[Rfam]
RNA sequence: AUGCAUUCCUAAAACCCCUUAGCAGUCUUCAAUGUAGCUGCCAAGACAGGUAGGAAUGCUAAAACAAACCAGUGAGACGUCCAAAGUGCAGAGGGUGUUAUUGCCUCUGUGCUAUUUCACAUCUUGCACAUUU
Number, nucleotide and partner (000 for none) at each position: 001a000002u000003g059004c058005a057006u056007u000008c000009c000010u050011a000012a000013a000014a000015c000016c000017c000018c045019u044020u043021a000022g041023c000024a039025g038026u037027c000028u000029u000030c000031a000032a000033u000034g000035u000036a000037g026038c025039u024040g000041c022042c000043a020044a019045g018046a000047c000048a000049g000050g010051u000052a000053g000054g000055a000056a006057u005058g004059c003060u000061a000062a000063a133064a132065c000066a000067a000068a000069c000070c000071a000072g125073u000074g123075a122076g000077a000078c000079g000080u000081c000082c000083a000084a000085a113086g112087u111088g110089c109090a108091g107092a000093g105094g104095g000096u000097g101098u000099u000100a000101u097102u000103g000104c094105c093106u000107c091108u090109g089110u088111g087112c086113u085114a000115u000116u000117u000118c000119a000120c000121a000122u075123c074124u000125u072126g000127c000128a000129c000130a000131u000132u064133u063
Record summary: Shown here is a 133-nucleotide sequence from Geotrypetes seraphini, a member of the family "Small nucleolar RNA SNORA14". Its family is annotated with RNA processing and nucleolus in the Gene Ontology. The family's consensus secondary structure was predicted with RNAfold. From the family's description: ACA14 is a member of the H/ACA class of snoRNA that guide the sites of modification of uridines to pseudouridines. Rfam classes the family as an H/ACA-box small nucleolar RNA. The organism belongs to Geotrypetes, within Eukaryota.